Record summary: A member of the RNA family "TPP riboswitch aptamer (THI element)", 101 nucleotides long. Gene Ontology term of the family: thiamine pyrophosphate binding. A search with the family's covariance model found it, with a score of 55 bits.
[Rfam]
RNA sequence: GUGGACGGCGCGGGGCGCCGGACGACAGGGAGUCCGGCUGAGAUGCACCCGUGGAACCUGCCAAGGUAGUGCUUGCGAAGGGAACGCCCGAUGAAGGACAG
Numbered sequence: 001g002u003g004g005a006c007g008g009c010g011c012g013g014g015g016c017g018c019c020g021g022a023c024g025a026c027a028g029g030g031a032g033u034c035c036g037g038c039u040g041a042g043a044u045g046c047a048c049c050c051g052u053g054g055a056a057c058c059u060g061c062c063a064a065g066g067u068a069g070u071g072c073u074u075g076c077g078a079a080g081g082g083a084a085c086g087c088c089c090g091a092u093g094a095a096g097g098a099c100a101g
Base pairs, nucleotide, nucleotide: 007088008087009086010085011051012050013049014048016045017038018037019036020035021034022033023032057081058080059079062075063074064073065072